[Rfam]
RNA sequence: AAACAGUUUCAGGAGAGGGUGCAAUUCCCCACCGGCGGUAAAACGGCGAACAGCCGGCGAGCCCGCGAGCGGCAUAUCAGCCGCGGAUUUUGGUUUGAUUCCGAAGCCGACGGUAGAGUCCGGAUGAAAGAAGAGGAGC
Numbered sequence: 001a002a003a004c005a006g007u008u009u010c011a012g013g014a015g016a017g018g019g020u021g022c023a024a025u026u027c028c029c030c031a032c033c034g035g036c037g038g039u040a041a042a043a044c045g046g047c048g049a050a051c052a053g054c055c056g057g058c059g060a061g062c063c064c065g066c067g068a069g070c071g072g073c074a075u076a077u078c079a080g081c082c083g084c085g086g087a088u089u090u091u092g093g094u095u096u097g098a099u100u101c102c103g104a105a106g107c108c109g110a111c112g113g114u115a116g117a118g119u120c121c122g123g124a125u126g127a128a129a130g131a132a133g134a135g136g137a138g139c
Stems, first nucleotide, its partner, number of pairs: 004136001007133004017029003031119002033109002035066004061107002069084003089105005111122003
About this RNA:
FMN riboswitch aptamer (RFN element): a 139-nucleotide RNA from Caproiciproducens sp. NJN-50. Pairs were carried over by alignment from the consensus structure, which is taken from published work. A reference for the family is Gelfand et al. (1999), "A conserved RNA structure element involved in the regulation of bacterial riboflavin synthesis genes", Trends Genet. It scores 94 bits against the family's covariance model.